The family of this 135-nucleotide RNA sequence from Pseudomonas japonica is "Pseudomonas sRNA P14".
[Rfam]
RNA sequence: AUGCACGGUUUUCGGACGUUUUUGCUGUCAAGCAGGGUGGCAAGGCAAUUUUUUUCCAAUUCUUGCGCUCAGUCAGUUUACUUACUACAAGUAAUGGGUACUAUGUACGCCGGCCAGUUUCUCUUUGCUGAGAGA
Numbered sequence: 001a002u003g004c005a006c007g008g009u010u011u012u013c014g015g016a017c018g019u020u021u022u023u024g025c026u027g028u029c030a031a032g033c034a035g036g037g038u039g040g041c042a043a044g045g046c047a048a049u050u051u052u053u054u055u056c057c058a059a060u061u062c063u064u065g066c067g068c069u070c071a072g073u074c075a076g077u078u079u080a081c082u083u084a085c086u087a088c089a090a091g092u093a094a095u096g097g098g099u100a101c102u103a104u105g106u107a108c109g110c111c112g113g114c115c116a117g118u119u120u121c122u123c124u125u126u127g128c129u130g131a132g133a134g135a
Base pairs, nucleotide, nucleotide: 024068025067030064031063032062034060039056040055042053043052072114073113074112076110077109079107080106081105083103084102086100087099088098090095118135119134120133121132122131123130
A search with the family's covariance model found it, with a score of 92 bits. The base pairs follow the family's consensus structure, which was predicted with WAR. Rfam classes the family as a small RNA. The organism belongs to Pseudomonas, within Bacteria.